[Rfam]
The record is a 101-nucleotide sequence, which matches "Plastid-rps12 3UTR RNA" in Rfam. Rfam 15.1 lists 1,710 matches to the family in 1,426 species. By type it is a cis-regulatory element.
RNA sequence: UCAAUAGGUGCAAACCAAAUCACCUUAAUUUGUAAUUUAAGAUAAAAUAUUCUUUCCCAUUGGUAACAAUUAGUUAUUCAUUAAGCGGGAAAAAUCCUAUU
Numbered sequence: 001u002c003a004a005u006a007g008g009u010g011c012a013a014a015c016c017a018a019a020u021c022a023c024c025u026u027a028a029u030u031u032g033u034a035a036u037u038u039a040a041g042a043u044a045a046a047a048u049a050u051u052c053u054u055u056c057c058c059a060u061u062g063g064u065a066a067c068a069a070u071u072a073g074u075u076a077u078u079c080a081u082u083a084a085g086c087g088g089g090a091a092a093a094a095u096c097c098u099a100u101u
Base pairs, nucleotide, nucleotide: 005019008016055090056089057088058087059081060080062078063077064076065075066074067073
Record summary:
From the family's description: Plastid rpl20 is a non-coding RNA (ncRNA) recognised in plastids. It was found in the three prime untranslated region (3UTR) of rps12 gene, its 3UTR location sugest a role in transcript maduration.